[Rfam]
RNA sequence: GCAGACUCACUCUGUUCCUUGCUGCUGAAUCCAGCCUGGUACUUUUUGUGUCUGCUACAUGGACUGCAGAGUGUAACUUCCACUGGCCUUGUUGUAGGCAGGUGUUUUCAUAUUCUGCUACACAUUA
Numbered sequence: 001g002c003a004g005a006c007u008c009a010c011u012c013u014g015u016u017c018c019u020u021g022c023u024g025c026u027g028a029a030u031c032c033a034g035c036c037u038g039g040u041a042c043u044u045u046u047u048g049u050g051u052c053u054g055c056u057a058c059a060u061g062g063a064c065u066g067c068a069g070a071g072u073g074u075a076a077c078u079u080c081c082a083c084u085g086g087c088c089u090u091g092u093u094g095u096a097g098g099c100a101g102g103u104g105u106u107u108u109c110a111u112a113u114u115c116u117g118c119u120a121c122a123c124a125u126u127a
Stems, first nucleotide, its partner, number of pairs: 001055006014042002017039002022034003066118007074110001076108001081104001083101003
Dot-bracket structure: ((((((.......((.((...(((.......)))...)).)).......))))))..........(((((((.(.(....(.(((.............)))..)...).).))))))).........